[Rfam]
RNA sequence: AGCAAUAGAAUAGGCUUGCAAGGGCGGUCGGCUACCUCUCAUUCUCUAGGAAGGGAGGGAUGCCAAAUGGAAGUUUAUCAAGCAUUAACGCUAAUGAUCUCAUUCGCGACAUUAAUGGUCCUGAUACUUUCCUUCCAUAAACACAAAUAGACCGCCCUCGGCAAAGGAAUCGGUCUAUUUGUACUGAGAUCCUACACAGCCUGCCGCCCUUAAAAGCGGCUAUUGCCCGGAGCCGUGCCCUGUAAGCACGG
Numbered sequence: 001a002g003c004a005a006u007a008g009a010a011u012a013g014g015c016u017u018g019c020a021a022g023g024g025c026g027g028u029c030g031g032c033u034a035c036c037u038c039u040c041a042u043u044c045u046c047u048a049g050g051a052a053g054g055g056a057g058g059g060a061u062g063c064c065a066a067a068u069g070g071a072a073g074u075u076u077a078u079c080a081a082g083c084a085u086u087a088a089c090g091c092u093a094a095u096g097a098u099c100u101c102a103u104u105c106g107c108g109a110c111a112u113u114a115a116u117g118g119u120c121c122u123g124a125u126a127c128u129u130u131c132c133u134u135c136c137a138u139a140a141a142c143a144c145a146a147a148u149a150g151a152c153c154g155c156c157c158u159c160g161g162c163a164a165a166g167g168a169a170u171c172g173g174u175c176u177a178u179u180u181g182u183a184c185u186g187a188g189a190u191c192c193u194a195c196a197c198a199g200c201c202u203g204c205c206g207c208c209c210u211u212a213a214a215a216g217c218g219g220c221u222a223u224u225g226c227c228c229g230g231a232g233c234c235g236u237g238c239c240c241u242g243u244a245a246g247c248a249c250g251g
Stems, first nucleotide, its partner, number of pairs: 002226004007221002011203006019160001021158004030152001032150002037060003042057005069131006083096002105123002108120001171188001204219004233251006
This 251-nucleotide RNA sequence from Paenibacillus sp. oral taxon 786 belongs to the Rfam family "BsrG". On this family, see Saito et al., Gene 2008: "Novel small RNA-encoding genes in the intergenic regions of Bacillus subtilis". Rfam classes the family as a small RNA. Its family is annotated with autolysis and toxin activity in the Gene Ontology.